[Rfam]
RNA sequence: UAGCAGCUCCCAGCUAUGAGAACUGAAUUCCAUGGGCUGGUUGCAACUUGAUUUUUUCAGUCCAUAGUAGUCAGUUCUCCAGCUUGGCUGCUCCAC
Dot-bracket structure: ........((.(((....((((((((.......(((((((................))))))).......))))))))...))).)).........

This 96-nucleotide RNA sequence from Chiloscyllium punctatum belongs to the Rfam family "mir-146 microRNA precursor family".
The organism belongs to Chiloscyllium, within Eukaryota.
The literature on the family includes a 2005 paper in Proc Natl Acad Sci U S A by Cai et al., "Kaposi's sarcoma-associated herpesvirus expresses an array of viral microRNAs in latently infected cells".